Actinobacteria sRNA Ms_IGR-7: a 117-nucleotide sequence from Acrocarpospora pleiomorpha. Taxonomically the source falls in Acrocarpospora (Bacteria, Bacillati, Streptosporangiales, Streptosporangiaceae). Rfam classes the family as a small RNA. On this family, see Li et al., RNA 2013: "Identification of small RNAs in Mycobacterium smegmatis using heterologous Hfq".
RNA sequence: ACGAGGUGUCCUUUCCGGCGGGCUGGUUGAAGCGUAGAGAACUCCAAUCAUCCCAGCUCAGAGGGCACCUCGCUCACAUUCAGGGCAUUCCCAUUAAAUUGCGACCUGUGGAUCCAG
Numbered sequence: 001a002c003g004a005g006g007u008g009u010c011c012u013u014u015c016c017g018g019c020g021g022g023c024u025g026g027u028u029g030a031a032g033c034g035u036a037g038a039g040a041a042c043u044c045c046a047a048u049c050a051u052c053c054c055a056g057c058u059c060a061g062a063g064g065g066c067a068c069c070u071c072g073c074u075c076a077c078a079u080u081c082a083g084g085g086c087a088u089u090c091c092c093a094u095u096a097a098a099u100u101g102c103g104a105c106c107u108g109u110g111g112a113u114c115c116a117g
Stems, first nucleotide, its partner, number of pairs: 002072012017059002020054003024050004029045001031043002098113002102110002